A member of the RNA family "Group II catalytic intron D1-D4-2" from Nitrosomonas sp. Nm58, 116 nucleotides long.

Nucleotides: 116
Base pairs, nucleotide, nucleotide: 001015002014003013004012005011016041017040018039019038020037021036023034024033025032026031046115048092049091050089051088052087053086054080055079057077058076059075061073062072063071064070097112098111099110100109101108102107
Number, partner (000 for none) and nucleotide at each position: 001015g002014a003013g004012g005011g006000u007000a008000g009000g010000c011005c012004c013003c014002u015001c016041g017040a018039a019038g020037u021036c022000u023034g024033g025032u026031u027000a028000c029000a030000g031026g032025a033024c034023u035000c036021g037020g038019c039018u040017u041016c042000a043000a044000a045000c046115c047000a048092c049091c050089a051088c052087g053086a054080g055079c056000u057077g058076c059075u060000u061073c062072g063071a064070u065000c066000a067000a068000a069000a070064g071063u072062c073061g074000c075059g076058g077057u078000a079055g080054u081000g082000a083000a084000c085000g086053u087052c088051g089050u090000u091049g092048g093000a094000a095000a096000a097112g098111g099110c100109a101108c102107u103000u104000g105000a106000a107102a108101g109100u110099g111098u112097c113000a114000g115046g116000u
The match comes from Rfam's covariance-model search (107 bits). On this family, see Bonen and Vogel, Trends Genet 2001: "The ins and outs of group II introns". From the family's description: Group II introns are found in rRNA, tRNA and mRNA of organelles in fungi, plants and protists, and also in mRNA in bacteria. The base pairs follow the family's consensus structure.